[Rfam]
RNA: Qrr RNA
Organism: Vibrio azureus
RNA sequence: UGCCCCGUUAGUCUAGGGGCUCCUAGCCAAAUUGACGUUGUUAGUGAACAGCCUUGUUCUUCUAACGAAGCCAAUCACUUUUUGUGAUUGGCUUUAUUUUU
Numbered sequence: 001u002g003c004c005c006c007g008u009u010a011g012u013c014u015a016g017g018g019g020c021u022c023c024u025a026g027c028c029a030a031a032u033u034g035a036c037g038u039u040g041u042u043a044g045u046g047a048a049c050a051g052c053c054u055u056g057u058u059c060u061u062c063u064a065a066c067g068a069a070g071c072c073a074a075u076c077a078c079u080u081u082u083u084g085u086g087a088u089u090g091g092c093u094u095u096a097u098u099u100u101u
Stems, first nucleotide, its partner, number of pairs: 002020005038068004044061001046059005071091008